A member of the RNA family "mir-156 microRNA precursor family" from Tripterygium wilfordii, 83 nucleotides long. Gene Ontology terms of the family: RISC complex and miRNA-mediated post-transcriptional gene silencing. About the family: This family represents the plant microRNA (miRNA) precursor mir-156. The family has 10 seed sequences and 1,401 matches in Rfam 15.1. Pairs were carried over by alignment from the consensus structure, which was predicted with PFOLD.
RNA sequence: CUGACAGAAGAGAGUGAGCACCCUCAGGCAAUUGUACAAUGCAUAUUCUUUUGCCGGUGCGUGCUCAUUUCUCUUUCUGUCAG
Numbered sequence: 001c002u003g004a005c006a007g008a009a010g011a012g013a014g015u016g017a018g019c020a021c022c023c024u025c026a027g028g029c030a031a032u033u034g035u036a037c038a039a040u041g042c043a044u045a046u047u048c049u050u051u052u053g054c055c056g057g058u059g060c061g062u063g064c065u066c067a068u069u070u071c072u073c074u075u076u077c078u079g080u081c082a083g
Stems, first nucleotide, its partner, number of pairs: 001083009010073003013069009023059001025057001